[Rfam]
RNA sequence: AGAGAAGUGGAAUCACAUGAUCCGUAUUACUCGUCUACCAGGCCUACUACUAAACGCAUCUUCUUUGCGCGGUAUGCCAGUGGGCGGCGAUCGGUCCUGAUUCAGCCACUCAGCUAUAAUAAACCCGCGCUACUGCGCGGGUUUUUUU
Numbered sequence: 001a002g003a004g005a006a007g008u009g010g011a012a013u014c015a016c017a018u019g020a021u022c023c024g025u026a027u028u029a030c031u032c033g034u035c036u037a038c039c040a041g042g043c044c045u046a047c048u049a050c051u052a053a054a055c056g057c058a059u060c061u062u063c064u065u066u067g068c069g070c071g072g073u074a075u076g077c078c079a080g081u082g083g084g085c086g087g088c089g090a091u092c093g094g095u096c097c098u099g100a101u102u103c104a105g106c107c108a109c110u111c112a113g114c115u116a117u118a119a120u121a122a123a124c125c126c127g128c129g130c131u132a133c134u135g136c137g138c139g140g141g142u143u144u145u146u147u148u
Stems, first nucleotide, its partner, number of pairs: 004109001007106002010103001012101003017098001019096002031087008048074004055069004121144010
Dot-bracket structure: ...(..((.(.(((..(.((..........((((((((.........((((...((((.......)))).)))).....)))))))).......)).)))).).))..)...........((((((((((....))))))))))....